This 90-nucleotide sequence from Yersinia pestis belongs to the Rfam family "CopA-like RNA". Pairs were carried over by alignment from the consensus structure, which was predicted with PFOLD. Rfam's curators put it in the seed alignment. About the family: In several groups of bacterial plasmids, antisense RNAs regulate copy number through inhibition of replication initiator protein synthesis. These RNAs are characterised by a long hairpin structure interrupted by several unpaired residues or bulged loops. In plasmid R1, the inhibitory complex between the antisense RNA (CopA) and its target mRNA (CopT) is characterised by a four-way junction structure and a side-by-side helical alignment.
RNA sequence: AUAGAGCAACAGCUUCUAUACAGUUUAAGUAGGCCCCGUUAAUCUUCUCUUAGUCGCCAAACCUGGUGAAGAUUAUCGGGGUUUUUGCUU
Number, nucleotide and partner (000 for none) at each position: 001a019002u018003a017004g016005a015006g000007c000008a000009a000010c000011a000012g000013c000014u000015u005016c004017u003018a002019u001020a000021c000022a000023g000024u000025u000026u000027a090028a089029g088030u087031a084032g083033g082034c081035c080036c079037c078038g077039u000040u075041a074042a073043u072044c071045u070046u069047c000048u000049c000050u000051u000052a000053g000054u000055c000056g000057c000058c000059a000060a000061a000062c000063c000064u000065g000066g000067u000068g000069a046070a045071g044072a043073u042074u041075a040076u000077c038078g037079g036080g035081g034082u033083u032084u031085u000086u000087g030088c029089u028090u027

Record summary: Lineage of the source: Bacteria > Pseudomonadati > Enterobacterales > Yersiniaceae > Yersinia pseudotuberculosis complex.